[Rfam]
RNA sequence: AUCUAUCUUCGGGGCAGGGUGAAAUUCCCGACCGGCGGUGAUGAGCAUGCACUUAUUGUUCUAAGCCCGCGAGCCUGUAAUUUUUGGCAGGAUCUGGUGUGAUUCCAGAGCCGACAGUAAAGUCUGGAUGGGAGAAGAUGGAG
Numbered sequence: 001a002u003c004u005a006u007c008u009u010c011g012g013g014g015c016a017g018g019g020u021g022a023a024a025u026u027c028c029c030g031a032c033c034g035g036c037g038g039u040g041a042u043g044a045g046c047a048u049g050c051a052c053u054u055a056u057u058g059u060u061c062u063a064a065g066c067c068c069g070c071g072a073g074c075c076u077g078u079a080a081u082u083u084u085u086g087g088c089a090g091g092a093u094c095u096g097g098u099g100u101g102a103u104u105c106c107a108g109a110g111c112c113g114a115c116a117g118u119a120a121a122g123u124c125u126g127g128a129u130g131g132g133a134g135a136a137g138a139u140g141g142a143g
Stems, first nucleotide, its partner, number of pairs: 003141008017029003031123002033113002035070004065111002073088003093109005115126003
A member of the RNA family "FMN riboswitch aptamer (RFN element)" from Metabacillus arenae, 143 nucleotides long. Rfam describes the family as follows. The RFN element is a highly conserved domain that is found frequently in the 5'-untranslated regions of prokaryotic mRNAs that encode for flavin mononucleotide (FMN) biosynthesis and transport proteins. This element is a metabolite-dependent riboswitch that directly binds FMN in the absence of proteins. In Bacillus subtilis, the riboswitch most likely controls gene expression by causing premature transcription termination within the 5' untranslated region of the ribDEAHT operon and precluding access to the ribosome-binding site of ypaA mRNA.The FMN riboswitch structure, reported in present an FMN-bound six-stem junction, adopts a butterfly-like scaffold, stapled together by opposingly directed but nearly identically folded peripheral domains. The source organism's lineage runs through Bacteria, Bacillota, Bacilli, Bacillaceae and Metabacillus.